The family of this 94-nucleotide RNA sequence from Cyclopterus lumpus is "let-7 microRNA precursor family".
[Rfam]
RNA sequence: CUGUGGUGAGGUAGUAAAUUGUGUUGUUGUGGGGUGUGGGAUAUUGCAACCCCUAAUUUGGAGAUACAACUAUACAACUUACUGCCUUUCACAG
Numbered sequence: 001c002u003g004u005g006g007u008g009a010g011g012u013a014g015u016a017a018a019u020u021g022u023g024u025u026g027u028u029g030u031g032g033g034g035u036g037u038g039g040g041a042u043a044u045u046g047c048a049a050c051c052c053c054u055a056a057u058u059u060g061g062a063g064a065u066a067c068a069a070c071u072a073u074a075c076a077a078c079u080u081a082c083u084g085c086c087u088u089u090c091a092c093a094g
Stems, first nucleotide, its partner, number of pairs: 001094006008088010019077006026070002032052004056065002
The family is grouped with related families in Rfam's "let-7 microRNA precursor clan".
Taxonomically the source falls in Cyclopterus (Eukaryota, Teleostei, Ctenosquamata, Euacanthomorphacea).